The family of this 148-nucleotide RNA sequence from Aneurinibacillus soli is "PyrR binding site".
It is annotated as a cis-regulatory element.
The organism belongs to Aneurinibacillus, within Bacteria.
This family represents the PyrR binding site and terminator structure. This RNA structure is found upstream of a variety of genes involved in pyrimidine biosynthesis and transport. The alignment also includes a portion of the antiterminator structure.
RNA sequence: GCAACCUUUAAUUCAGUCCUGUGAGGCUGGUAAGGAGACCGGAUGCGUUCGGCACAUGAUACAGAAGGAGUCUGUGUAUUCAGGCUAUACUCUGAGUUGUGUUGUGCGCAAAAGAGCUUACUGCCACCUGCAGUAAGCUCUUUUUUGU
Numbered sequence: 001g002c003a004a005c006c007u008u009u010a011a012u013u014c015a016g017u018c019c020u021g022u023g024a025g026g027c028u029g030g031u032a033a034g035g036a037g038a039c040c041g042g043a044u045g046c047g048u049u050c051g052g053c054a055c056a057u058g059a060u061a062c063a064g065a066a067g068g069a070g071u072c073u074g075u076g077u078a079u080u081c082a083g084g085c086u087a088u089a090c091u092c093u094g095a096g097u098u099g100u101g102u103u104g105u106g107c108g109c110a111a112a113a114g115a116g117c118u119u120a121c122u123g124c125c126a127c128c129u130g131c132a133g134u135a136a137g138c139u140c141u142u143u144u145u146u147g148u
Stems, first nucleotide, its partner, number of pairs: 005035004013030006047107002050104007111143014
Dot-bracket structure: ....((((....((((((......)))))).))))...........((.(((((((.........................................))))))).))...((((((((((((((.....)))))))))))))).....